[Rfam]
RNA sequence: UCGUGGCUGCCCGAUUUGUCAGGACACUUAUCCCCGGGGCCUUACGCAUUCCUUAGGGAGCUGUCCCUGCUUUGGGCCGUGGUCCGUUGCAUACGGCGCCCACCUACUUUGUAGGUUCUCCGGGAUUGCACAUCCAACGGUCGGGUGGCUACGCA
Numbered sequence: 001u002c003g004u005g006g007c008u009g010c011c012c013g014a015u016u017u018g019u020c021a022g023g024a025c026a027c028u029u030a031u032c033c034c035c036g037g038g039g040c041c042u043u044a045c046g047c048a049u050u051c052c053u054u055a056g057g058g059a060g061c062u063g064u065c066c067c068u069g070c071u072u073u074g075g076g077c078c079g080u081g082g083u084c085c086g087u088u089g090c091a092u093a094c095g096g097c098g099c100c101c102a103c104c105u106a107c108u109u110u111g112u113a114g115g116u117u118c119u120c121c122g123g124g125a126u127u128g129c130a131c132a133u134c135c136a137a138c139g140g141u142c143g144g145g146u147g148g149c150u151a152c153g154c155a
Stems, first nucleotide, its partner, number of pairs: 002153014017139003031125004036120003039116003056101003060097005069090002073086005

Shown here is a 155-nucleotide RNA sequence from Roseibium alexandrii, a member of the family "6S / SsrS RNA". NCBI's taxonomy places the organism under Bacteria, Pseudomonadati, Hyphomicrobiales, Stappiaceae, Roseibium.